[Rfam]
RNA sequence: GCUAGUAUUAAGGAGUAAAGAAAUUUAUGCGGGGGCUCCACAAGAGCCCUCAUUUGCCCCGGUGACUUCCCCUCCUAGUUACCGGGGUGUUUUU
Dot-bracket structure: ..............................(((((((.......)))))))....((((((((((((.........))))))))))))......
A member of the RNA family "atoC RNA" from a Desulfuromonadales bacterium, 94 nucleotides long.
Rfam classes the family as a cis-regulatory element.